[Rfam]
RNA sequence: CGAUUUUCGACCUGCCUUCCGCCACAGCGCAUGUGUCGCGUGUUCUCCUGGCGUAUCCCCAGUGCAGCAGAUGCUCCCUCCCUCAUCUGCAUGCGAUGCGCCCUCCUGGCCUCGCUCGCCCGUUUCGGCAAGCGAGGCUUUUU
Numbered sequence: 001c002g003a004u005u006u007u008c009g010a011c012c013u014g015c016c017u018u019c020c021g022c023c024a025c026a027g028c029g030c031a032u033g034u035g036u037c038g039c040g041u042g043u044u045c046u047c048c049u050g051g052c053g054u055a056u057c058c059c060c061a062g063u064g065c066a067g068c069a070g071a072u073g074c075u076c077c078c079u080c081c082c083u084c085a086u087c088u089g090c091a092u093g094c095g096a097u098g099c100g101c102c103c104u105c106c107u108g109g110c111c112u113c114g115c116u117c118g119c120c121c122g123u124u125u126c127g128g129c130a131a132g133c134g135a136g137g138c139u140u141u142u143u
Stems, first nucleotide, its partner, number of pairs: 050102008067090007109138008119128002
Rhizobiales sRNA Atu_C7: a 143-nucleotide RNA sequence from Rhizobium sp. Root1212. It is annotated as a small RNA. A reference for the family is Wilms et al. (2012), "Deep sequencing uncovers numerous small RNAs on all four replicons of the plant pathogen Agrobacterium tumefaciens", RNA Biol.